[Rfam]
RNA: Small nucleolar RNA SNORD24
RNA sequence: UGCUAAUGAUGACAUAUUUGCUACUCUUGAGCAUUGCUUUGAUGACUCACAAUCACCAAGAUCGCUGAAGCA
Number, nucleotide and partner (000 for none) at each position: 001u072002g071003c070004u069005a000006a000007u000008g000009a000010u000011g000012a000013c000014a000015u000016a000017u000018u000019u000020g000021c000022u000023a000024c000025u000026c000027u000028u000029g000030a000031g000032c000033a000034u000035u000036g000037c000038u000039u000040u000041g000042a000043u000044g000045a000046c000047u000048c000049a000050c000051a000052a000053u000054c000055a000056c000057c000058a000059a000060g000061a000062u000063c000064g000065c000066u000067g000068a000069a004070g003071c002072a001